[Rfam]
RNA sequence: CAAUACCUUCGUUAGGUGAGGCUCCUAUGCUGGAGAGACGCUACUGCCCAAAAAUGUCCAAAGACGCCAAUGGGUCAACAGGAACUAUCGACAUAAGGUGGUUUUUAAUGUAGCUGGAUGCAAUCCUAUGCCGCAUAGUGCUAAAGCUCUACGAUUAGAAGGUCUAA
Numbered sequence: 001c002a003a004u005a006c007c008u009u010c011g012u013u014a015g016g017u018g019a020g021g022c023u024c025c026u027a028u029g030c031u032g033g034a035g036a037g038a039c040g041c042u043a044c045u046g047c048c049c050a051a052a053a054a055u056g057u058c059c060a061a062a063g064a065c066g067c068c069a070a071u072g073g074g075u076c077a078a079c080a081g082g083a084a085c086u087a088u089c090g091a092c093a094u095a096a097g098g099u100g101g102u103u104u105u106u107a108a109u110g111u112a113g114c115u116g117g118a119u120g121c122a123a124u125c126c127u128a129u130g131c132c133g134c135a136u137a138g139u140g141c142u143a144a145a146g147c148u149c150u151a152c153g154a155u156u157a158g159a160a161g162g163u164c165u166a167a
Stems, first nucleotide, its partner, number of pairs: 005163006011152002013096001015148003020142003025138006032132002040114005046075005055066004081105004087099003116126003
RNA: M-box riboswitch aptamer (ykoK leader)